Shown here is a 141-nucleotide sequence from Cnephaeus nilssonii, a member of the family "ODC internal ribosome entry site (IRES)".
Its family is annotated with ribosome binding in the Gene Ontology.
The family has 13 seed sequences and 437 matches in Rfam 15.1.

RNA sequence: AUUCUCACUGCUGCACUAAGAGAACCCACCUUCCAUGGACUGGGAAUUCCUGGAGAGCUGCGUUUGUGAACAGCUGGCAAUAAUUUCUGAAGUCCCAUCUCUUCAUUUCCUUUGUGUUGCAUUUUGGAACAUCCAGAAACC
Numbered sequence: 001a002u003u004c005u006c007a008c009u010g011c012u013g014c015a016c017u018a019a020g021a022g023a024a025c026c027c028a029c030c031u032u033c034c035a036u037g038g039a040c041u042g043g044g045a046a047u048u049c050c051u052g053g054a055g056a057g058c059u060g061c062g063u064u065u066g067u068g069a070a071c072a073g074c075u076g077g078c079a080a081u082a083a084u085u086u087c088u089g090a091a092g093u094c095c096c097a098u099c100u101c102u103u104c105a106u107u108u109c110c111u112u113u114g115u116g117u118u119g120c121a122u123u124u125u126g127g128a129a130c131a132u133c134c135a136g137a138a139a140c141c
Base pairs, nucleotide, nucleotide: 006077010074011073012072016068017066018065019064020063022061024059027057037050038049039048084139085138086137087136088135089134093129095127096126